This 119-nucleotide RNA sequence from Duganella sp. 1224 belongs to the Rfam family "FMN riboswitch aptamer (RFN element)". Its family is annotated with FMN binding in the Gene Ontology. The RFN element is a highly conserved domain that is found frequently in the 5'-untranslated regions of prokaryotic mRNAs that encode for flavin mononucleotide (FMN) biosynthesis and transport proteins. This element is a metabolite-dependent riboswitch that directly binds FMN in the absence of proteins. In Bacillus subtilis, the riboswitch most likely controls gene expression by causing premature transcription termination within the 5' untranslated region of the ribDEAHT operon and precluding access to the ribosome-binding site of ypaA mRNA.The FMN riboswitch structure, reported in present an FMN-bound six-stem junction, adopts a butterfly-like scaffold, stapled together by opposingly directed but nearly identically folded peripheral domains.

RNA sequence: AAACGUCUUCGGGGCGGGGUGCAAUUCCCCACCGGCGGUACAGCCCGCGAGCGCGGCAACGCGCAGAUCUGGUGCAACUCCAGGGCCGACGGUAACAGUCCGGAUGAAAGAAGAUGUGC
Dot-bracket structure: ..((((((((......(((.......))).[[((((((....[[))))..(((........)))...(((((.......)))))]])).(((.....]]))).......))))))))..
Numbered sequence: 001a002a003a004c005g006u007c008u009u010c011g012g013g014g015c016g017g018g019g020u021g022c023a024a025u026u027c028c029c030c031a032c033c034g035g036c037g038g039u040a041c042a043g044c045c046c047g048c049g050a051g052c053g054c055g056g057c058a059a060c061g062c063g064c065a066g067a068u069c070u071g072g073u074g075c076a077a078c079u080c081c082a083g084g085g086c087c088g089a090c091g092g093u094a095a096c097a098g099u100c101c102g103g104a105u106g107a108a109a110g111a112a113g114a115u116g117u118g119c
Stems, first nucleotide, its partner, number of pairs: 003117008017029003031099002033088002035048004043086002051064003068084005090102003